[Rfam]
RNA sequence: UCGGGGUCCAGUUUUCCCAGGAAUCCCUUAGAAGAUAAGAAGGGGAUUCCUGGAAAUACUGUUCUUGGGGUC
Number, nucleotide and partner (000 for none) at each position: 001u000002c000003g000004g000005g000006g000007u000008c000009c061010a060011g059012u058013u000014u056015u055016c000017c053018c052019a051020g050021g049022a048023a047024u046025c045026c044027c043028u042029u000030a000031g000032a000033a000034g000035a000036u000037a000038a000039g000040a000041a000042g028043g027044g026045g025046a024047u023048u022049c021050c020051u019052g018053g017054a000055a015056a014057u000058a012059c011060u010061g009062u000063u000064c000065u000066u000067g000068g000069g000070g000071u000072c000

A member of the RNA family "mir-145 microRNA precursor family" from Ophiophagus hannah, 72 nucleotides long.
Rfam links the family to the GO terms miRNA-mediated post-transcriptional gene silencing and RISC complex.
A reference for the family is Chen et al. (2005), "The developmental miRNA profiles of zebrafish as determined by small RNA cloning", Genes Dev.